[Rfam]
RNA sequence: CUCUUAUCCAGAGAGGCGGAGGGACUGGCCCGAUGAUGCCCGGCAACCCCCGGUUUUCUUUAUGAAAACACGGGAAGGUGCUAAUUCCUGCGGACGCUUUGGCGCCCGACAGAUGAGAG
Numbered sequence: 001c002u003c004u005u006a007u008c009c010a011g012a013g014a015g016g017c018g019g020a021g022g023g024a025c026u027g028g029c030c031c032g033a034u035g036a037u038g039c040c041c042g043g044c045a046a047c048c049c050c051c052g053g054u055u056u057u058c059u060u061u062a063u064g065a066a067a068a069c070a071c072g073g074g075a076a077g078g079u080g081c082u083a084a085u086u087c088c089u090g091c092g093g094a095c096g097c098u099u100u101g102g103c104g105c106c107c108g109a110c111a112g113a114u115g116a117g118a119g
Stems, first nucleotide, its partner, number of pairs: 001119008013041001015040003021031003025090001027088002042082004047078002049074004086111001091108003095104002
A member of the RNA family "SAM riboswitch aptamer (S box leader)" from Sporolactobacillus shoreae, 119 nucleotides long. Lineage of the source: Bacteria > Bacillati > Bacillota > Caryophanales > Sporolactobacillus. The family's consensus secondary structure is taken from published work. The SAM riboswitch is found upstream of a number of genes which code for proteins involved in methionine or cysteine biosynthesis in Gram-positive bacteria. The SAM riboswitch acts at the level of transcription termination control. The predicted structure consists of a complex stem-loop region followed by a single stem loop terminator region. An alternative and mutually exclusive form involves bases in the 3' segment of helix 1 with those in the 5' region of helix 5 to form a structure termed the anti-terminator form. This entry represents the conserved core of the complex structure involving helices 1-4.